RNA sequence: AGCCGGUAGAUUAGGCGUAAAACAGUCAGCACAUGAGAGCAACCUCGUAAAAAGCGUA
Numbered sequence: 001a002g003c004c005g006g007u008a009g010a011u012u013a014g015g016c017g018u019a020a021a022a023c024a025g026u027c028a029g030c031a032c033a034u035g036a037g038a039g040c041a042a043c044c045u046c047g048u049a050a051a052a053a054g055c056g057u058a
Stems, first nucleotide, its partner, number of pairs: 002016003009027004034047004

A member of the RNA family "GP20-b RNA", 58 nucleotides long.